[Rfam]
RNA sequence: UCAUGAUAGGUAAUCGCUACUUGAUAGUAGAGGAAAGUCCAGGCUGCCACAAUCUGCGAUGAUUGUAGUGUUUGUGCCUCACGAAUCAAUAAGUGAGGGUAGUGUAAACUAACGACAGAAGCAAGACCUAAGGGUAACUAUGGUUGAAAUUCAUAAAUGGCUCCACAGAGACAAUGCUAUAGGAAACUAUAGGUGAAAAGAGGAAAGCUCCGCAAGGCAGAAACCCAAAUUUGGUAGGGGAAUCGAUUGAUUUGGAAUUGAACGAAUCAUCGGACGUGAAAACGUAGAUAAAUGAUUAUCUGAAAUACAGAACUUGGCUUAUUUA
Numbered sequence: 001u002c003a004u005g006a007u008a009g010g011u012a013a014u015c016g017c018u019a020c021u022u023g024a025u026a027g028u029a030g031a032g033g034a035a036a037g038u039c040c041a042g043g044c045u046g047c048c049a050c051a052a053u054c055u056g057c058g059a060u061g062a063u064u065g066u067a068g069u070g071u072u073u074g075u076g077c078c079u080c081a082c083g084a085a086u087c088a089a090u091a092a093g094u095g096a097g098g099g100u101a102g103u104g105u106a107a108a109c110u111a112a113c114g115a116c117a118g119a120a121g122c123a124a125g126a127c128c129u130a131a132g133g134g135u136a137a138c139u140a141u142g143g144u145u146g147a148a149a150u151u152c153a154u155a156a157a158u159g160g161c162u163c164c165a166c167a168g169a170g171a172c173a174a175u176g177c178u179a180u181a182g183g184a185a186a187c188u189a190u191a192g193g194u195g196a197a198a199a200g201a202g203g204a205a206a207g208c209u210c211c212g213c214a215a216g217g218c219a220g221a222a223a224c225c226c227a228a229a230u231u232u233g234g235u236a237g238g239g240g241a242a243u244c245g246a247u248u249g250a251u252u253u254g255g256a257a258u259u260g261a262a263c264g265a266a267u268c269a270u271c272g273g274a275c276g277u278g279a280a281a282a283c284g285u286a287g288a289u290a291a292a293u294g295a296u297u298a299u300c301u302g303a304a305a306u307a308c309a310g311a312a313c314u315u316g317g318c319u320u321a322u323u324u325a
Base pairs, nucleotide, nucleotide: 006324008322009300010299011298012297013296014295015294017030018029019028020027021026035320036319037318039317040316041315042314043313044220045219046218047217048216049066050065051064052063053062054061072215073214074213075212076211077098078097079096080095081094082093099113100111101110102109103108114210115209118152119151120150125145126144127143128142132139133138160208161207162204163203164202177192178191179190180189181188182187224239225238226237243273244272245271246270247269249268250267274285275284276283277282
This 325-nucleotide RNA sequence from Erysipelatoclostridium sp. AM42-17 belongs to the Rfam family "Bacterial RNase P class B". The family's RNA type in Rfam is ribozyme. From the family's description: Ribonuclease P (RNase P) is a ubiquitous endoribonuclease, found in archaea, bacteria and eukarya as well as chloroplasts and mitochondria. For this family Rfam cites "Ribonuclease P: unity and diversity in a tRNA processing ribozyme" (Frank and Pace, Annu Rev Biochem, 1998). The family's consensus secondary structure is taken from published work. A search with the family's covariance model found it, with a score of 232 bits.